[Rfam]
RNA: mir-133 microRNA precursor family
Organism: Strongylocentrotus purpuratus
RNA sequence: GCGCUUUAGCUGGUAAACGGGAACCAAAUCGUGAAGUAAAUGCGGAUUUGGUCCCCUUCAACCAGCCGUAGCAC
Numbered sequence: 001g002c003g004c005u006u007u008a009g010c011u012g013g014u015a016a017a018c019g020g021g022a023a024c025c026a027a028a029u030c031g032u033g034a035a036g037u038a039a040a041u042g043c044g045g046a047u048u049u050g051g052u053c054c055c056c057u058u059c060a061a062c063c064a065g066c067c068g069u070a071g072c073a074c
Stems, first nucleotide, its partner, number of pairs: 003072003009066006016058002020054003024051007